[Rfam]
Nucleotides: 061
Base pairs, nucleotide, nucleotide: 009056010055011054012053013052014051020046021045022044023043027040029037
Number, partner (000 for none) and nucleotide at each position: 001000c002000g003000u004000u005000u006000a007000g008000a009056g010055a011054u012053u013052g014051c015000c016000u017000c018000u019000g020046u021045c022044g023043u024000u025000a026000c027040c028000u029037g030000c031000g032000c033000u034000a035000u036000g037029u038000a039000u040027g041000u042000g043023a044022c045021g046020g047000g048000a049000a050000u051014g052013c053012a054011a055010u056009u057000g058000u059000u060000g061000a
The record is a 61-nucleotide RNA, which matches "Transposase-1 RNA" in Rfam. The family's consensus secondary structure is taken from published work. It is one of the family's seed sequences. Rfam classes the family as a small RNA.